Shown here is a 61-nucleotide RNA sequence from Halovulum dunhuangense, a member of the family "terC RNA". Rfam classes the family as a cis-regulatory element. Rfam 15.1 lists 1,112 matches to the family in 772 species. It scores 50 bits against the family's covariance model. Lineage of the source: Bacteria > Pseudomonadati > Alphaproteobacteria > Paracoccaceae > Halovulum.
RNA sequence: CCUGGUGACCGGGCCCCUCUGGCGAGUGACAGGCGGCUGUCUCGCGAUGUCGGCACCUGAG
Numbered sequence: 001c002c003u004g005g006u007g008a009c010c011g012g013g014c015c016c017c018u019c020u021g022g023c024g025a026g027u028g029a030c031a032g033g034c035g036g037c038u039g040u041c042u043c044g045c046g047a048u049g050u051c052g053g054c055a056c057c058u059g060a061g
Base pairs, nucleotide, nucleotide: 006055007054009053010052011051012050022045023044024043025042026041029040030039031038